[Rfam]
The family of this 114-nucleotide RNA sequence from Catenibacterium sp. CAG:290 is "FMN riboswitch aptamer (RFN element)". The family's consensus secondary structure is taken from published work. The source organism's lineage runs through Bacteria, Bacillota, Erysipelotrichia, Coprobacillaceae and Catenibacterium.
RNA sequence: UUGUAUCUUUGGGGCAGGUGAAAUUCCUGAUCGGCGGUAAAAGUCCGCGAGCGUAAAGCAUGAACUGGUGUAAUUCCAGUACCGACGGUAUAGUCCGGAUGGAAAAAGAUGGCG
Numbered sequence: 001u002u003g004u005a006u007c008u009u010u011g012g013g014g015c016a017g018g019u020g021a022a023a024u025u026c027c028u029g030a031u032c033g034g035c036g037g038u039a040a041a042a043g044u045c046c047g048c049g050a051g052c053g054u055a056a057a058g059c060a061u062g063a064a065c066u067g068g069u070g071u072a073a074u075u076c077c078a079g080u081a082c083c084g085a086c087g088g089u090a091u092a093g094u095c096c097g098g099a100u101g102g103a104a105a106a107a108g109a110u111g112g113c114g
Base pairs, nucleotide, nucleotide: 004111005110006109007108008107009106010105016028017027018026030094031093032084033083034048035047036046037045043082044081064080065079066078067077068076086097087096088095